[Rfam]
RNA sequence: CCCCUGCUGUGGUAUAUGGCUUUUUAUUCCUAUGUGAUUGAUUUCAUAACUCACGUAGGGCUGAAAGCCAUGCACUACACAGGGGA
Numbered sequence: 001c002c003c004c005u006g007c008u009g010u011g012g013u014a015u016a017u018g019g020c021u022u023u024u025u026a027u028u029c030c031u032a033u034g035u036g037a038u039u040g041a042u043u044u045c046a047u048a049a050c051u052c053a054c055g056u057a058g059g060g061c062u063g064a065a066a067g068c069c070a071u072g073c074a075c076u077a078c079a080c081a082g083g084g085g086a
Base pairs, nucleotide, nucleotide: 002085003084004083005082008079009078010077011076012075013074015072016071017070018069019068020067021066022065023064026062028060029059030058031057032056033055034054035053036052037051

A member of the RNA family "mir-135 microRNA precursor family" from Leptobrachium leishanense, 86 nucleotides long. Gene Ontology terms of the family: RISC complex and gene silencing by miRNA. On this family, see Lagos-Quintana et al., Curr Biol 2002: "Identification of tissue-specific microRNAs from mouse". Pairs were carried over by alignment from the consensus structure, which was predicted with PFOLD.